[Rfam]
RNA sequence: AUCUGAAAAGCGGGCCGUGCCGCACGGCCCCACCGACGGUGCAAGCCGCCCCCGGCACGGGGCCGGCGAACCUCUCAGGUGCCGAUGACAGAU
Numbered sequence: 001a002u003c004u005g006a007a008a009a010g011c012g013g014g015c016c017g018u019g020c021c022g023c024a025c026g027g028c029c030c031c032a033c034c035g036a037c038g039g040u041g042c043a044a045g046c047c048g049c050c051c052c053c054g055g056c057a058c059g060g061g062g063c064c065g066g067c068g069a070a071c072c073u074c075u076c077a078g079g080u081g082c083c084g085a086u087g088a089c090a091g092a093u
Base pairs, nucleotide, nucleotide: 001093002092003091004090005089012030013029014028015027032080033079034078035076036075039074041072045067046066047065048064
The record is a 93-nucleotide sequence from Streptomyces lonarensis, which matches "Glycine riboswitch aptamer" in Rfam.
Its family is annotated with glycine biosynthetic process in the Gene Ontology.
Taxonomically the source falls in Streptomyces (Bacteria, Bacillati, Actinomycetota, Actinomycetes).